[Rfam]
RNA sequence: GCGCCCGCGCAGGGAGAGUCCGGUACAGCCGGCGCCGAAGGAGCAACCGCCCCGGAAACUCUCAGGCACCAGGACCGGCGCGGGCCA
Numbered sequence: 001g002c003g004c005c006c007g008c009g010c011a012g013g014g015a016g017a018g019u020c021c022g023g024u025a026c027a028g029c030c031g032g033c034g035c036c037g038a039a040g041g042a043g044c045a046a047c048c049g050c051c052c053c054g055g056a057a058a059c060u061c062u063c064a065g066g067c068a069c070c071a072g073g074a075c076c077g078g079c080g081c082g083g084g085c086c087a
Stems, first nucleotide, its partner, number of pairs: 006082005012076002020032004034067003037063002041061003047055002